[Rfam]
RNA sequence: UUGGCAUGAUGAGGAAACCUUACGUUUAUCUGAUCUAUUUGAUGAUAAAUUCCUCCUACUCAUUCUGA
Numbered sequence: 001u002u003g004g005c006a007u008g009a010u011g012a013g014g015a016a017a018c019c020u021u022a023c024g025u026u027u028a029u030c031u032g033a034u035c036u037a038u039u040u041g042a043u044g045a046u047a048a049a050u051u052c053c054u055c056c057u058a059c060u061c062a063u064u065c066u067g068a
Stems, first nucleotide, its partner, number of pairs: 006063004030041001